Shown here is a 197-nucleotide RNA from [Actinobacillus] rossii, a member of the family "GcvB RNA". The gcvB gene encodes a small untranslated RNA involved in expression of the dipeptide and oligopeptide transport systems in Escherichia coli. Included several unknown homologues in alignment (Bateman A pers obs). It base-pairs with SorC. This interaction triggers the degradation of GcvB by RNase E, alleviating the GcvB-mediated mRNA repression of other amino acid-related transport and metabolic genes. For this family Rfam cites "The gcvB gene encodes a small untranslated RNA involved in expression of the dipeptide and oligopeptide transport systems in Escherichia coli" (Urbanowski et al., Mol Microbiol, 2000). It scores 98 bits against the family's covariance model. NCBI's taxonomy places the organism under Bacteria, Pseudomonadati, Pseudomonadota, Gammaproteobacteria, [Pasteurella] aerogenes-[Pasteurella] mairii-[Actinobacillus] rossii complex.
RNA sequence: AAUCCCAUACUUAAUGAUUGGUAAUUCCUUAAUUGAUUAAGAGUUUUUCUUAGUUAAGUAUUAUGUUGUGUUUGCAUAUUGUUUGGGAAACCAAACGGCGUUAUCUGUUUUUCCGAAUAGAUAACGAUUUAACUUCCUGUAUAUUUUGACCCGAUUUGGGUUAUAAACACCGCACUUCUCUUGCGGUGUUUUUUUAU
Numbered sequence: 001a002a003u004c005c006c007a008u009a010c011u012u013a014a015u016g017a018u019u020g021g022u023a024a025u026u027c028c029u030u031a032a033u034u035g036a037u038u039a040a041g042a043g044u045u046u047u048u049c050u051u052a053g054u055u056a057a058g059u060a061u062u063a064u065g066u067u068g069u070g071u072u073u074g075c076a077u078a079u080u081g082u083u084u085g086g087g088a089a090a091c092c093a094a095a096c097g098g099c100g101u102u103a104u105c106u107g108u109u110u111u112u113c114c115g116a117a118u119a120g121a122u123a124a125c126g127a128u129u130u131a132a133c134u135u136c137c138u139g140u141a142u143a144u145u146u147u148g149a150c151c152c153g154a155u156u157u158g159g160g161u162u163a164u165a166a167a168c169a170c171c172g173c174a175c176u177u178c179u180c181u182u183g184c185g186g187u188g189u190u191u192u193u194u195u196a197u
Base pairs, nucleotide, nucleotide: 009054010053014051020049021048023046024045026043028041029040030039031038032037079098080097081096082095083094084093085092086091100125101124102123103122104121105120106119107118108117109116141164142163143162145160146159147158166190167189168188169187170186171185172184173183
Annotation: The family's RNA type in Rfam is non-coding RNA gene. Rfam links the family to the GO terms regulation of gene expression and mRNA binding.